Rfam assigns this 57-nucleotide RNA sequence from Nakamurella multipartita to the family "F6 TB sRNA". On this family, see Arnvig and Young, Mol Microbiol 2009: "Identification of small RNAs in Mycobacterium tuberculosis".
RNA sequence: AGGGCGACCCCGGACAGCUGCCGGACCCCCGACCUGGCAGCUGUGCGGGGUCACUUC
Numbered sequence: 001a002g003g004g005c006g007a008c009c010c011c012g013g014a015c016a017g018c019u020g021c022c023g024g025a026c027c028c029c030c031g032a033c034c035u036g037g038c039a040g041c042u043g044u045g046c047g048g049g050g051u052c053a054c055u056u057c
Stems, first nucleotide, its partner, number of pairs: 002056003007051006014044009